[Rfam]
RNA sequence: CUGAAGUUGAUGCUUAAUCUUCAAAUUUGAAGAGCGGGGGACGAACUACUUUGGGGUGAAACCGCAGUCGCGGUAGGGUAAACUCUUAUACCUAACCCGUCAACUAACCUCGUCAGCUUAAUAAGAGGAGGC
Number, nucleotide and partner (000 for none) at each position: 001c000002u000003g000004a000005a000006g000007u000008u000009g000010a000011u000012g117013c116014u115015u000016a000017a000018u033019c032020u031021u030022c029023a000024a000025a000026u000027u000028u000029g022030a021031a020032g019033a018034g113035c112036g111037g110038g109039g108040g000041a000042c000043g000044a000045a052046c000047u000048a000049c000050u000051u000052u045053g000054g098055g097056g096057u000058g000059a000060a000061a000062c073063c072064g071065c070066a000067g000068u000069c000070g065071c064072g063073g062074u000075a000076g000077g092078g091079u090080a000081a000082a000083c000084u000085c000086u000087u000088a000089u000090a079091c078092c077093u000094a000095a000096c056097c055098c054099g000100u000101c000102a000103a000104c000105u000106a000107a000108c039109c038110u037111c036112g035113u034114c000115a014116g013117c012118u000119u000120a000121a000122u000123a000124a000125g000126a000127g000128g000129a000130g000131g000132c000
RNA: c-di-AMP riboswitch aptamer (ydaO/yuaA leader)